The record is a 72-nucleotide sequence from Schizosaccharomyces pombe, which matches "tRNA" in Rfam.
Rfam classes the family as a transfer RNA.
The family's consensus secondary structure is taken from published work.
Taxonomically the source falls in Schizosaccharomyces (Eukaryota, Opisthokonta, Dikarya, Ascomycota).
It is one of the family's seed sequences.
RNA sequence: UGCGCGGUAGGAGAGUGGAACUCCGACGGGCUCAUAACCCGUAGGUCCCAGGAUCGAAACCUGGCCGCGCAA
Numbered sequence: 001u002g003c004g005c006g007g008u009a010g011g012a013g014a015g016u017g018g019a020a021c022u023c024c025g026a027c028g029g030g031c032u033c034a035u036a037a038c039c040c041g042u043a044g045g046u047c048c049c050a051g052g053a054u055c056g057a058a059a060c061c062u063g064g065c066c067g068c069g070c071a072a
Base pairs, nucleotide, nucleotide: 001071002070003069004068005067006066007065010024011023012022013021026042027041028040029039030038048064049063050062051061052060